[Rfam]
RNA: Arthropod 7SK RNA
Organism: Tenebrio molitor
RNA sequence: GGAGGUGUGUGUCAGUGAUGGCACAACUGAACAUUGAUCGCUUUAGCUCAGUAGGCUGAUCUGCUCAGUGACGUGCGGUCACGUGGUCGAUCCAGCAACCAUCGGACUCUGACGAUGCCAUAGUACGCACGUCAGUCAUCCUCUGGUUUCUUGAACGUCCGCCAUUUCCAAAUUUUGGGGGGUUACGGAUGGGUUUCAUUUAGAGCACCUCCAAUAAUAGGCACUGCAGUUUCGUAGUUCGCCAUUUUUACUU
Numbered sequence: 001g002g003a004g005g006u007g008u009g010u011g012u013c014a015g016u017g018a019u020g021g022c023a024c025a026a027c028u029g030a031a032c033a034u035u036g037a038u039c040g041c042u043u044u045a046g047c048u049c050a051g052u053a054g055g056c057u058g059a060u061c062u063g064c065u066c067a068g069u070g071a072c073g074u075g076c077g078g079u080c081a082c083g084u085g086g087u088c089g090a091u092c093c094a095g096c097a098a099c100c101a102u103c104g105g106a107c108u109c110u111g112a113c114g115a116u117g118c119c120a121u122a123g124u125a126c127g128c129a130c131g132u133c134a135g136u137c138a139u140c141c142u143c144u145g146g147u148u149u150c151u152u153g154a155a156c157g158u159c160c161g162c163c164a165u166u167u168c169c170a171a172a173u174u175u176u177g178g179g180g181g182g183u184u185a186c187g188g189a190u191g192g193g194u195u196u197c198a199u200u201u202a203g204a205g206c207a208c209c210u211c212c213a214a215u216a217a218u219a220g221g222c223a224c225u226g227c228a229g230u231u232u233c234g235u236a237g238u239u240c241g242c243c244a245u246u247u248u249u250a251c252u253u
Stems, first nucleotide, its partner, number of pairs: 001212008015082005027068003032063002036061004040056004220243003223238005